Rfam assigns this 104-nucleotide RNA from Microtus ochrogaster to the family "Small nucleolar RNA SNORA29". Pairs were carried over by alignment from the consensus structure, which was predicted with PFOLD. The family has 26 seed sequences and 960 matches in Rfam 15.1. The family is grouped with related families in Rfam's "SNORA20 clan". The match comes from Rfam's covariance-model search (85 bits). About the family: ACA29 is a member of the H/ACA class of snoRNA that guide the sites of modification of uridines to pseudouridines. By type it is an H/ACA-box small nucleolar RNA.
RNA sequence: UUUCUCAAUAAAACAUCUCAUGGGAUAGAUGAAAAGUGCCGUGAUCUGAAGGGGGAGGACUUUUCGGUGUCUUCCUUCUAUAUGAAAUGGCUCAACAGAAGGGA
Number, nucleotide and partner (000 for none) at each position: 001u000002u000003u000004c024005u023006c022007a021008a000009u000010a000011a000012a000013a000014c000015a000016u000017c000018u000019c000020a000021u007022g006023g005024g004025a000026u000027a000028g000029a000030u000031g000032a000033a000034a000035a000036g000037u000038g091039c090040c089041g088042u000043g000044a000045u000046c000047u000048g000049a000050a000051g000052g000053g000054g000055g000056a079057g078058g077059a076060c000061u000062u000063u000064u000065c000066g000067g000068u000069g000070u000071c000072u000073u000074c000075c000076u059077u058078c057079u056080a000081u000082a000083u000084g000085a000086a000087a000088u041089g040090g039091c038092u000093c000094a000095a000096c000097a000098g000099a000100a000101g000102g000103g000104a000